[Rfam]
RNA: mir-190 microRNA precursor family
Organism: Nasonia vitripennis
RNA sequence: UAUACUGCUAGAUAUGUUUGAUAUUCUUGGUUGUAUAAUAAUAACGACCAGGAAUCAAACAUAUUAUUACAGUGUC
Numbered sequence: 001u002a003u004a005c006u007g008c009u010a011g012a013u014a015u016g017u018u019u020g021a022u023a024u025u026c027u028u029g030g031u032u033g034u035a036u037a038a039u040a041a042u043a044a045c046g047a048c049c050a051g052g053a054a055u056c057a058a059a060c061a062u063a064u065u066a067u068u069a070c071a072g073u074g075u076c
Stems, first nucleotide, its partner, number of pairs: 005072003011065012024052002029049005